[Rfam]
RNA: mir-124 microRNA precursor family
Organism: Allacma fusca
RNA sequence: CCCUUUCGGUUUUCACUGUAGGCCUUGAUGUGAAAAAAAUUAUCAUAAGGCACGCGGUGAAUGCCAAAAGUG
Numbered sequence: 001c002c003c004u005u006u007c008g009g010u011u012u013u014c015a016c017u018g019u020a021g022g023c024c025u026u027g028a029u030g031u032g033a034a035a036a037a038a039a040u041u042a043u044c045a046u047a048a049g050g051c052a053c054g055c056g057g058u059g060a061a062u063g064c065c066a067a068a069a070g071u072g
Base pairs, nucleotide, nucleotide: 003070004069005068006067009064010063012061013060014059015058016057018055019054023050024049025048026047027046030043